Description
Rfam assigns this 117-nucleotide RNA from Candidatus Parepulonipiscium sp. PG-Nun2H_MBin03 to the family "FMN riboswitch aptamer (RFN element)". The organism belongs to Candidatus Parepulonipiscium, within Bacteria. Its family is annotated with FMN binding in the Gene Ontology. Rfam describes the family as follows. The RFN element is a highly conserved domain that is found frequently in the 5'-untranslated regions of prokaryotic mRNAs that encode for flavin mononucleotide (FMN) biosynthesis and transport proteins.
RNA sequence: UAACAUCUUCAGGGCAGGGUGUAAAUCCCUACCGGUGGUAUAGCCCACGAGCCGUAAAACGCAUGAUUUGGUGAAAUUCCAAAGCCGACAGUAUAGUCUGGAUGAAAGAAGAUAUAG
Numbered sequence: 001u002a003a004c005a006u007c008u009u010c011a012g013g014g015c016a017g018g019g020u021g022u023a024a025a026u027c028c029c030u031a032c033c034g035g036u037g038g039u040a041u042a043g044c045c046c047a048c049g050a051g052c053c054g055u056a057a058a059a060c061g062c063a064u065g066a067u068u069u070g071g072u073g074a075a076a077u078u079c080c081a082a083a084g085c086c087g088a089c090a091g092u093a094u095a096g097u098c099u100g101g102a103u104g105a106a107a108g109a110a111g112a113u114a115u116a117g
Stems, first nucleotide, its partner, number of pairs: 003115001005113006017029003031097002033087002035048004043085002053061001067083005089100003